[Rfam]
RNA sequence: GGAGACGGCCAGACAGUCGCCGCCAGCGCAAGCUGGGGGAGGAAAGUCCGGGCUCCAUAGGGCAAGGUGCCAGAUAACGUCUGGGCGGCGCGAGCCGACGGCAAGUGCAGCAGAGAGAAGACCGCCUACGUCAGCUUCGGCUGACCGGUAAGGGUGAAAGGGUGCGGUAAGAGCGCACCGCGCGGCUGGCAACAGUUCGCGGCGAGGUAAACCCCACCUGGAGCAAGACCAAAUAGGCCCCCUAUGCUGCUGCCCGCAGUGGGGGCGGGUUGGUUGCUUGAGCCCUGAAGUGAUUCAGGGCCUAGAUGAAUGACUGUCCACGACAAGACCCGGCUUAUCGGCCAUCUCCCGCC
Numbered sequence: 001g002g003a004g005a006c007g008g009c010c011a012g013a014c015a016g017u018c019g020c021c022g023c024c025a026g027c028g029c030a031a032g033c034u035g036g037g038g039g040a041g042g043a044a045a046g047u048c049c050g051g052g053c054u055c056c057a058u059a060g061g062g063c064a065a066g067g068u069g070c071c072a073g074a075u076a077a078c079g080u081c082u083g084g085g086c087g088g089c090g091c092g093a094g095c096c097g098a099c100g101g102c103a104a105g106u107g108c109a110g111c112a113g114a115g116a117g118a119a120g121a122c123c124g125c126c127u128a129c130g131u132c133a134g135c136u137u138c139g140g141c142u143g144a145c146c147g148g149u150a151a152g153g154g155u156g157a158a159a160g161g162g163u164g165c166g167g168u169a170a171g172a173g174c175g176c177a178c179c180g181c182g183c184g185g186c187u188g189g190c191a192a193c194a195g196u197u198c199g200c201g202g203c204g205a206g207g208u209a210a211a212c213c214c215c216a217c218c219u220g221g222a223g224c225a226a227g228a229c230c231a232a233a234u235a236g237g238c239c240c241c242c243u244a245u246g247c248u249g250c251u252g253c254c255c256g257c258a259g260u261g262g263g264g265g266c267g268g269g270u271u272g273g274u275u276g277c278u279u280g281a282g283c284c285c286u287g288a289a290g291u292g293a294u295u296c297a298g299g300g301c302c303u304a305g306a307u308g309a310a311u312g313a314c315u316g317u318c319c320a321c322g323a324c325a326a327g328a329c330c331c332g333g334c335u336u337a338u339c340g341g342c343c344a345u346c347u348c349c350c351g352c353c
Stems, first nucleotide, its partner, number of pairs: 001349005007343004011338001012318007020039002023036005044336003048333005053223004060255004065219005070084005085099001086097004100214002105212002107208002122153002124149003130145006161179006180203001181201005186195003227275004237266006246260005282301008
RNA: Bacterial RNase P class A